[Rfam]
RNA: ZMP/ZTP riboswitch aptamer (pfl RNA motif)
RNA sequence: AGUGCGCUAUAUGACUGACGGAAGUGGGUUGACCACAUGGAGUAUAGCGGACAUGAGCCGACCGUCUGGGCACGCUGC
Numbered sequence: 001a002g003u004g005c006g007c008u009a010u011a012u013g014a015c016u017g018a019c020g021g022a023a024g025u026g027g028g029u030u031g032a033c034c035a036c037a038u039g040g041a042g043u044a045u046a047g048c049g050g051a052c053a054u055g056a057g058c059c060g061a062c063c064g065u066c067u068g069g070g071c072a073c074g075c076u077g078c
Stems, first nucleotide, its partner, number of pairs: 003051001005049008015039001017066005024036004055073001057071003